[Rfam]
RNA: ASpks TB sRNA
RNA sequence: CUUGAUGGACCCGAGGUAGAGCGGCUGCUGCCGCUCCUGGCCGUAGGUGGCGAGCAGCGCCUGCGCCUC
Dot-bracket structure: .............((.(.....).))..(((((...((..(((....)))..))...))...)))....